Rfam assigns this 76-nucleotide RNA sequence from Scophthalmus maximus to the family "Small nucleolar RNA SNORD66".
The source organism's lineage runs through Eukaryota, Neoteleostei, Ctenosquamata, Pleuronectiformes and Scophthalmus.
Rfam's curators write: snoRNA HBII-142 is part of the C/D family of snoRNAs.
It is annotated as a C/D-box small nucleolar RNA.
A reference for the family is Huttenhofer et al. (2001), "RNomics: an experimental approach that identifies 201 candidates for novel, small, non-messenger RNAs in mouse", EMBO J.
[Rfam]
RNA sequence: UUCCAGUGGUGACUUUAUUUUUGUGCCACGUGUCUGGGCCUCUGAUUAUUGGUGAUGGGAUUGAGGAGCUGAGGAG
Numbered sequence: 001u002u003c004c005a006g007u008g009g010u011g012a013c014u015u016u017a018u019u020u021u022u023g024u025g026c027c028a029c030g031u032g033u034c035u036g037g038g039c040c041u042c043u044g045a046u047u048a049u050u051g052g053u054g055a056u057g058g059g060a061u062u063g064a065g066g067a068g069c070u071g072a073g074g075a076g
Stems, first nucleotide, its partner, number of pairs: 001076004